[Rfam]
RNA sequence: UAACAUGACGCGGCUAGAGUUUUAGGACUCGUGGAUGGUUGUUUUAACAACUUGGUUAAGCCGAGGUAAGGCGUGAGGAAUUGCCGCAGUUCUAAGUCUGCCUCGGUUUUGCUAG
Dot-bracket structure: .........[[[[[..(((((....)))))........((((....)))).(((((....((((((((.(......(((((.]]]]].)))))...).))))))))....)))))

Annotation:
The record is a 115-nucleotide RNA sequence from Vibrio cholerae, which matches "RT-12 RNA" in Rfam. Taxonomically the source falls in Vibrio cholerae (Bacteria, Pseudomonadota, Gammaproteobacteria, Vibrionaceae).